[Rfam]
Y RNA: a 79-nucleotide RNA sequence from Propithecus coquereli. Taxonomically the source falls in Propithecus (Eukaryota, Opisthokonta, Chordata, Strepsirrhini). A reference for the family is Mosig et al. (2007), "Evolution of the vertebrate Y RNA cluster", Theory Biosci.
RNA sequence: AGUUAGUCCCAGGGUUGUGGGUUAUUGCUAAGCUGAUUUAACAUCGUCUCCCCCCACAACCACGCUUGACUAGCUUUGU
Numbered sequence: 001a002g003u004u005a006g007u008c009c010c011a012g013g014g015u016u017g018u019g020g021g022u023u024a025u026u027g028c029u030a031a032g033c034u035g036a037u038u039u040a041a042c043a044u045c046g047u048c049u050c051c052c053c054c055c056a057c058a059a060c061c062a063c064g065c066u067u068g069a070c071u072a073g074c075u076u077u078g079u
Base pairs, nucleotide, nucleotide: 001075002074003073004072005071006070007069008068011066014063015062016058017057018056019055020054021053026043027042030039031038